[Rfam]
RNA: Flavo-1 RNA
Organism: Galbibacter orientalis
RNA sequence: UUUUAGGCGUUGCGCUAGGGAUUGCAGCGGCAUCCUAUUUUGCUAUUGCUAUAGGUCGAUUAUAAACAAUUACCUUACUUAAAAAUACAAACUUUGUUUCUACAAAAGUAAAGCAAAAUAGAUACAGCGAAAAGCCCGACCCUUA
Numbered sequence: 001u002u003u004u005a006g007g008c009g010u011u012g013c014g015c016u017a018g019g020g021a022u023u024g025c026a027g028c029g030g031c032a033u034c035c036u037a038u039u040u041u042g043c044u045a046u047u048g049c050u051a052u053a054g055g056u057c058g059a060u061u062a063u064a065a066a067c068a069a070u071u072a073c074c075u076u077a078c079u080u081a082a083a084a085a086u087a088c089a090a091a092c093u094u095u096g097u098u099u100c101u102a103c104a105a106a107a108g109u110a111a112a113g114c115a116a117a118a119u120a121g122a123u124a125c126a127g128c129g130a131a132a133a134g135c136c137c138g139a140c141c142c143u144u145a
Stems, first nucleotide, its partner, number of pairs: 018137003022133002027128002032123003037119008